[Rfam]
RNA sequence: UCACAGGCGUGGACGGCCGCCGGCGGGCAACCGCGGGAGGAAAGUCCGGGCUCCGCGGAUCAACGGUGGCGGGUAACGCCCGCCGGGGGCGACCCCAGGGACAGUGCCACAGAAAACAGUCCACCGUCCGGCUUUCGGGUGACGGCCAGGGCGAAACGGGGCGGCAAGAGCGCACCGCGCGGCUGGCAACAGCCGUGGCAGGGCAAACCCCACCGGGAGCAAGACCGAAUAGGCGCGUCAGGCAGGAUCCAGCCGACGGCGCGCGGGUUGGUUGCUGGAGGGUGCGGGCGACCGCAUCCCUAGAGGAAUGGCCGUCCAGGGCGUUCGCGCCCGGACAGAACCCGGCUUACAGCGCCUGUGGUGGG
Numbered sequence: 001u002c003a004c005a006g007g008c009g010u011g012g013a014c015g016g017c018c019g020c021c022g023g024c025g026g027g028c029a030a031c032c033g034c035g036g037g038a039g040g041a042a043a044g045u046c047c048g049g050g051c052u053c054c055g056c057g058g059a060u061c062a063a064c065g066g067u068g069g070c071g072g073g074u075a076a077c078g079c080c081c082g083c084c085g086g087g088g089g090c091g092a093c094c095c096c097a098g099g100g101a102c103a104g105u106g107c108c109a110c111a112g113a114a115a116a117c118a119g120u121c122c123a124c125c126g127u128c129c130g131g132c133u134u135u136c137g138g139g140u141g142a143c144g145g146c147c148a149g150g151g152c153g154a155a156a157c158g159g160g161g162c163g164g165c166a167a168g169a170g171c172g173c174a175c176c177g178c179g180c181g182g183c184u185g186g187c188a189a190c191a192g193c194c195g196u197g198g199c200a201g202g203g204c205a206a207a208c209c210c211c212a213c214c215g216g217g218a219g220c221a222a223g224a225c226c227g228a229a230u231a232g233g234c235g236c237g238u239c240a241g242g243c244a245g246g247a248u249c250c251a252g253c254c255g256a257c258g259g260c261g262c263g264c265g266g267g268u269u270g271g272u273u274g275c276u277g278g279a280g281g282g283u284g285c286g287g288g289c290g291a292c293c294g295c296a297u298c299c300c301u302a303g304a305g306g307a308a309u310g311g312c313c314g315u316c317c318a319g320g321g322c323g324u325u326c327g328c329g330c331c332c333g334g335a336c337a338g339a340a341c342c343c344g345g346c347u348u349a350c351a352g353c354g355c356c357u358g359u360g361g362u363g364g365g
Base pairs, nucleotide, nucleotide: 001361002360003359004358005357006356007355008354009353010352011350012316013315014314015313016312017311018310020037021036023034024033025032026031042348043347044346046345047344048343049342050341051219052218053217054216064215065214066213067212068211069083070082071081072080073079084098085096086095087094088093099210100209104208105207106204107203108202121150122149124145125144126143127142128139129138131136158176159175161173162172163171177199178197179196180195181194182193183192184191185190223273224272225271226270233264234263235262236261237260238259242257245254246253280299281298282297283296284295285294286293287292

Source information:
This 365-nucleotide RNA from Sandaracinobacteroides saxicola belongs to the Rfam family "Bacterial RNase P class A". The match comes from Rfam's covariance-model search (254 bits). By type it is a ribozyme. A reference for the family is Frank and Pace (1998), "Ribonuclease P: unity and diversity in a tRNA processing ribozyme", Annu Rev Biochem.